[Rfam]
RNA sequence: AAAGCGAUUGCCGAAAAGCUGUAUAAAAGAGUAGGCA
Numbered sequence: 001a002a003a004g005c006g007a008u009u010g011c012c013g014a015a016a017a018g019c020u021g022u023a024u025a026a027a028a029g030a031g032u033a034g035g036c037a
Stems, first nucleotide, its partner, number of pairs: 003020003010036003
RNA: DUF805b RNA